[Rfam]
Background: A member of the RNA family "Glycine riboswitch aptamer" from Microbacterium thalassium, 88 nucleotides long. The base pairs follow the family's consensus structure. The source organism's lineage runs through Bacteria, Actinomycetota, Actinomycetes, Microbacteriaceae and Microbacterium.

RNA sequence: UCACCCGCCACGGGAGAACGCCGCUUCGCGGCUGCCGUAGGAGCAACCCCUCCCGGAAUCUCUCAGGCCCACGUACCGUGGCGACAGG
Dot-bracket structure: .....((((((((......((((.....)))).((((...(((...((......))...))).).))).......)))))))).....